[Rfam]
RNA sequence: GGGCCGGUAGCUCAGUUGGUUAGAGCACACCCUUGAUAAGGGUGGGGUCGAAAGUUCAAGUCUUUCUCGGCCCA
Numbered sequence: 001g002g003g004c005c006g007g008u009a010g011c012u013c014a015g016u017u018g019g020u021u022a023g024a025g026c027a028c029a030c031c032c033u034u035g036a037u038a039a040g041g042g043u044g045g046g047g048u049c050g051a052a053a054g055u056u057c058a059a060g061u062c063u064u065u066c067u068c069g070g071c072c073c074a
Stems, first nucleotide, its partner, number of pairs: 001073007010026004028044005050066005

Description: The record is a 74-nucleotide RNA from alpha proteobacterium HIMB114, which matches "tRNA" in Rfam. Rfam describes the family as follows. Transfer RNA (tRNA) molecules are approximately 80 nucleotides in length. It scores 68 bits against the family's covariance model. Pairs were carried over by alignment from the consensus structure, which is taken from published work. Gene Ontology term of the family: triplet codon-amino acid adaptor activity. The organism belongs to Candidatus Pelagibacteraceae, within Bacteria. The family's RNA type in Rfam is transfer RNA.